The family of this 60-nucleotide RNA from Rousettus aegyptiacus is "Ma3 gene ribosomal frameshift signal". The family's consensus secondary structure is taken from published work. The organism belongs to Rousettus, within Eukaryota. A search with the family's covariance model found it, with a score of 71 bits.
RNA sequence: GGGAAACGAGGCGGGGGCUGGGGCCAUGAGCCACCCCAAGCCCUAGGAAGCAGGGGCUCA
Numbered sequence: 001g002g003g004a005a006a007c008g009a010g011g012c013g014g015g016g017g018c019u020g021g022g023g024c025c026a027u028g029a030g031c032c033a034c035c036c037c038a039a040g041c042c043c044u045a046g047g048a049a050g051c052a053g054g055g056g057c058u059c060a
Stems, first nucleotide, its partner, number of pairs: 014044006021037003028059005